[Rfam]
HDV ribozyme from F. prausnitzii: a 72-nucleotide sequence from Rodentolepis nana.
The literature on the family includes a 2009 paper in Science by Webb et al., "Widespread occurrence of self-cleaving ribozymes".
The source organism's lineage runs through Eukaryota, Platyhelminthes, Neodermata, Eucestoda and Rodentolepis.
RNA sequence: GGGGUGCGAAAUAUACUUACCUCCACGUGAUGCACCCUGGGCAACGCAUACUUAGGCGGCAAAAAAGUCGAU
Numbered sequence: 001g002g003g004g005u006g007c008g009a010a011a012u013a014u015a016c017u018u019a020c021c022u023c024c025a026c027g028u029g030a031u032g033c034a035c036c037c038u039g040g041g042c043a044a045c046g047c048a049u050a051c052u053u054a055g056g057c058g059g060c061a062a063a064a065a066a067g068u069c070g071a072u
Base pairs, nucleotide, nucleotide: 001038002037003036004035005034006033007032019031021029045058046057047056049054
Gene Ontology term of the family: catalytic activity.